[Rfam]
RNA sequence: UUACAAUUAAAGGAUAUUUCUGGCGAAUGACUAUGAUUCAGAAAUGCCUUUUAAUUGUUUGGC
Numbered sequence: 001u002u003a004c005a006a007u008u009a010a011a012g013g014a015u016a017u018u019u020c021u022g023g024c025g026a027a028u029g030a031c032u033a034u035g036a037u038u039c040a041g042a043a044a045u046g047c048c049u050u051u052u053a054a055u056u057g058u059u060u061g062g063c
Base pairs, nucleotide, nucleotide: 003058004057005056006055007054008053009052010051012049013048015046016045017044018043019042020041021040024035025034

Shown here is a 63-nucleotide RNA sequence from Muraenolepis orangiensis, a member of the family "mir-7552 microRNA precursor family". The organism belongs to Muraenolepis, within Eukaryota.